[Rfam]
RNA: RT-5 RNA
RNA sequence: AAGCGUCUGCGUCGGAACGAAGCCGUACACAUAAAAAAGAUCUUGCAGGCGGUCGUGUACGAGUGUGGUUUCGUAGCCACAACGUGGCUUUCAAAGCCUUUCU
Numbered sequence: 001a002a003g004c005g006u007c008u009g010c011g012u013c014g015g016a017a018c019g020a021a022g023c024c025g026u027a028c029a030c031a032u033a034a035a036a037a038a039g040a041u042c043u044u045g046c047a048g049g050c051g052g053u054c055g056u057g058u059a060c061g062a063g064u065g066u067g068g069u070u071u072c073g074u075a076g077c078c079a080c081a082a083c084g085u086g087g088c089u090u091u092c093a094a095a096g097c098c099u100u101u102c103u
Base pairs, nucleotide, nucleotide: 005050006049007048008047009046010045011044014072015071016070018068022064023063024061025060026059027058028057029056039054040053041052042051075089076088077087078086079085080084